[Rfam]
RNA: tRNA
Organism: Colletotrichum incanum
RNA sequence: UCCCAUAUAGUAUAGUGGUUAGUAUACUCCGCUUUCAUUCCAUUAAUGAGAUCCGGAGAGUCCCGAGUUCGAACCUCGGUGUGGGAA
Numbered sequence: 001u002c003c004c005a006u007a008u009a010g011u012a013u014a015g016u017g018g019u020u021a022g023u024a025u026a027c028u029c030c031g032c033u034u035u036c037a038u039u040c041c042a043u044u045a046a047u048g049a050g051a052u053c054c055g056g057a058g059a060g061u062c063c064c065g066a067g068u069u070c071g072a073a074c075c076u077c078g079g080u081g082u083g084g085g086a087a
Stems, first nucleotide, its partner, number of pairs: 001086007010025004027058005063079005